[Rfam]
A member of the RNA family "mir-363 microRNA precursor family" from Silurus meridionalis, 93 nucleotides long.
Pairs were carried over by alignment from the consensus structure, which was predicted with RNAalifold.
NCBI's taxonomy places the organism under Eukaryota, Deuterostomia, Chordata, Siluridae, Silurus.
It scores 77 bits against the family's covariance model.
Clan: mir-19 clan.
The family has 22 seed sequences and 620 matches in Rfam 15.1.
Nucleotides: 093
Base pairs, nucleotide, nucleotide: 009084010083011082012081013080014079015078016077017076019075020074023071024070025069026068027067028066029065030064031063
Number, partner (000 for none) and nucleotide at each position: 001000g002000c003000u004000g005000u006000u007000u008000u009084c010083g011082g012081g013080u014079g015078g016077a017076u018000g019075a020074c021000u022000u023071u024070g025069c026068a027067a028066u029065u030064u031063u032000a033000g034000c035000g036000g037000u038000a039000a040000u041000u042000a043000g044000a045000u046000u047000u048000u049000u050000c051000u052000a053000u054000g055000g056000g057000g058000a059000a060000a061000a062000a063031a064030a065029a066028a067027u068026u069025g070024c071023a072000c073000g074020g075019u076017a077016u078015c079014c080013a081012u082011c083010u084009g085000u086000a087000a088000u089000c090000c091000g092000c093000c